[Rfam]
RNA sequence: AAAAAGGGCUUCUGUCGUGAAGUGGCCCACAUAGGGCAUACCUAUUGCUCUACAUGCGGAAUUGACAUCAAGAGAUUCGGAAGCGUAAUUUUUGUUCCUUGGGCAGCUGGUGAUCGUUGGUCCCGGCACCCUU
Numbered sequence: 001a002a003a004a005a006g007g008g009c010u011u012c013u014g015u016c017g018u019g020a021a022g023u024g025g026c027c028c029a030c031a032u033a034g035g036g037c038a039u040a041c042c043u044a045u046u047g048c049u050c051u052a053c054a055u056g057c058g059g060a061a062u063u064g065a066c067a068u069c070a071a072g073a074g075a076u077u078c079g080g081a082a083g084c085g086u087a088a089u090u091u092u093u094g095u096u097c098c099u100u101g102g103g104c105a106g107c108u109g110g111u112g113a114u115c116g117u118u119g120g121u122c123c124c125g126g127c128a129c130c131c132u133u
Stems, first nucleotide, its partner, number of pairs: 008084005014026004028056002032052007057079003061076003101131003106127005112122004
Notes
A member of the RNA family "U11 spliceosomal RNA" from Orycteropus afer, 133 nucleotides long. The family's consensus secondary structure is taken from published work. The family is grouped with related families in Rfam's "U1 clan".